[Rfam]
RNA sequence: GGAUCGAUGAUGACACCCACAAACGCAUUCCUUGGAAAAUCUGAACAAAAUGAGUGAGAACUCACUACCGUCUCCUCAUCCCAAACUGAAGUCC
Numbered sequence: 001g002g003a004u005c006g007a008u009g010a011u012g013a014c015a016c017c018c019a020c021a022a023a024c025g026c027a028u029u030c031c032u033u034g035g036a037a038a039a040u041c042u043g044a045a046c047a048a049a050a051u052g053a054g055u056g057a058g059a060a061c062u063c064a065c066u067a068c069c070g071u072c073u074c075c076u077c078a079u080c081c082c083a084a085a086c087u088g089a090a091g092u093c094c
Stems, first nucleotide, its partner, number of pairs: 001094004026056005032048003
RNA: Small nucleolar RNA SNORD116